[Rfam]
RNA sequence: AAAAAAGAAGGCCUUCUCUUCCUGAUUCUUUCUGGAGUUGGGAAAAGCUGGGUCAAGAGGGCAAAAAAGAAAGAAA
Numbered sequence: 001a002a003a004a005a006a007g008a009a010g011g012c013c014u015u016c017u018c019u020u021c022c023u024g025a026u027u028c029u030u031u032c033u034g035g036a037g038u039u040g041g042g043a044a045a046a047g048c049u050g051g052g053u054c055a056a057g058a059g060g061g062c063a064a065a066a067a068a069g070a071a072a073g074a075a076a
Stems, first nucleotide, its partner, number of pairs: 014059004021052004029044006